[Rfam]
RNA: c-di-AMP riboswitch aptamer (ydaO/yuaA leader)
RNA sequence: UAGCGAAAACCGCCAGGCAGGAGCGGGGGAACCAACACCGGGCGACGAAAGUCGUCCUUGGGGCGAAGUAGCGGUGCAGCAUCACGGGGAUUGUUGCGCCGAGACCGGGCAUCUUCGGCCCGAGCCCGACAGCUCACCUCGUAGGCGACGGAGAGGUAUC
Numbered sequence: 001u002a003g004c005g006a007a008a009a010c011c012g013c014c015a016g017g018c019a020g021g022a023g024c025g026g027g028g029g030a031a032c033c034a035a036c037a038c039c040g041g042g043c044g045a046c047g048a049a050a051g052u053c054g055u056c057c058u059u060g061g062g063g064c065g066a067a068g069u070a071g072c073g074g075u076g077c078a079g080c081a082u083c084a085c086g087g088g089g090a091u092u093g094u095u096g097c098g099c100c101g102a103g104a105c106c107g108g109g110c111a112u113c114u115u116c117g118g119c120c121c122g123a124g125c126c127c128g129a130c131a132g133c134u135c136a137c138c139u140c141g142u143a144g145g146c147g148a149c150g151g152a153g154a155g156g157u158a159u160c
Stems, first nucleotide, its partner, number of pairs: 003146002010021002023142006033060002061127003069104001107121004